[Rfam]
RNA sequence: UAAGUUUGAGAUCAAACCACUGAUUUUUAAACAACCUUUUUCCCCUGAGUAAAGUAAAGAAUUGCUGUGUGUAGUCUUUGCCCAUCCCCUGUGAUGGGCUUUUUUUUUU
Number, nucleotide and partner (000 for none) at each position: 001u000002a000003a021004g020005u019006u000007u000008g000009a000010g000011a000012u000013c000014a000015a000016a000017c000018c000019a005020c004021u003022g000023a000024u000025u000026u000027u000028u000029a000030a000031a000032c047033a046034a000035c000036c000037u000038u000039u000040u000041u000042c000043c000044c000045c000046u033047g032048a000049g000050u000051a000052a000053a000054g000055u000056a000057a000058a000059g000060a000061a000062u000063u071064g070065c069066u000067g000068u000069g065070u064071g063072u000073a000074g000075u000076c000077u000078u000079u000080g099081c098082c097083c096084a095085u094086c093087c000088c000089c000090u000091g000092u000093g086094a085095u084096g083097g082098g081099c080100u000101u000102u000103u000104u000105u000106u000107u000108u000109u000
RNA: RprA RNA
Organism: Pantoea vagans